[Rfam]
RNA sequence: GCCGGUGUGGCGGAAUUGGCAGACGCAAAGGACUUAAAAUCCUUCGGAGAGUAAUUUCCGUGCCGGUUCGAGUCCGGCCACCGGCA
Number, nucleotide and partner (000 for none) at each position: 001g085002c084003c083004g082005g081006u080007g079008u000009g000010g026011c025012g024013g000014a000015a000016u000017u000018g000019g000020c000021a000022g000023a000024c012025g011026c010027a000028a044029a043030g042031g041032a040033c000034u000035u000036a000037a000038a000039a000040u032041c031042c030043u029044u028045c000046g000047g000048a000049g000050a000051g000052u000053a000054a000055u000056u000057u000058c000059c000060g000061u000062g078063c077064c076065g075066g074067u000068u000069c000070g000071a000072g000073u000074c066075c065076g064077g063078c062079c007080a006081c005082c004083g003084g002085c001086a000